[Rfam]
RNA: Nuclear RNase P
Organism: Nothoprocta perdicaria
RNA sequence: UCCGGGGGAAGCUCACCGCCGAGGUCACGCACCGGGUGCGCGUCACCCCCCCGCGCCUCGGGGAAGGUCUGAGCGAGGGGCCGCGGCGGCCCCAGCAGGGCCCCGCCCGCGCGGGCGGGUGAGCCACCAGCAAGGGGGGGCGCCGCGGCGGCCGGCCCGGGCAGGAGAAGCCGCGGGUGGGCGGCGUGGCGCGACCGGCCCGCCCCGGCGGAUGCUCAUGGCCCCGCGGCGCUGUGAGACAGACUCACGGCCGGCAUGCUGAGUCCAAUGGUGUGAGGUGGGGCACCGCCCCACAACCCAAUUCAGACUACUCUCCCCCGGA
Numbered sequence: 001u002c003c004g005g006g007g008g009a010a011g012c013u014c015a016c017c018g019c020c021g022a023g024g025u026c027a028c029g030c031a032c033c034g035g036g037u038g039c040g041c042g043u044c045a046c047c048c049c050c051c052c053g054c055g056c057c058u059c060g061g062g063g064a065a066g067g068u069c070u071g072a073g074c075g076a077g078g079g080g081c082c083g084c085g086g087c088g089g090c091c092c093c094a095g096c097a098g099g100g101c102c103c104c105g106c107c108c109g110c111g112c113g114g115g116c117g118g119g120u121g122a123g124c125c126a127c128c129a130g131c132a133a134g135g136g137g138g139g140g141c142g143c144c145g146c147g148g149c150g151g152c153c154g155g156c157c158c159g160g161g162c163a164g165g166a167g168a169a170g171c172c173g174c175g176g177g178u179g180g181g182c183g184g185c186g187u188g189g190c191g192c193g194a195c196c197g198g199c200c201c202g203c204c205c206c207g208g209c210g211g212a213u214g215c216u217c218a219u220g221g222c223c224c225c226g227c228g229g230c231g232c233u234g235u236g237a238g239a240c241a242g243a244c245u246c247a248c249g250g251c252c253g254g255c256a257u258g259c260u261g262a263g264u265c266c267a268a269u270g271g272u273g274u275g276a277g278g279u280g281g282g283g284c285a286c287c288g289c290c291c292c293a294c295a296a297c298c299c300a301a302u303u304c305a306g307a308c309u310a311c312u313c314u315c316c317c318c319c320g321g322a
Stems, first nucleotide, its partner, number of pairs: 001322004007316003012277004017271001020060005034048005069306005079252004088102005103118006119248005125242001139233010278294007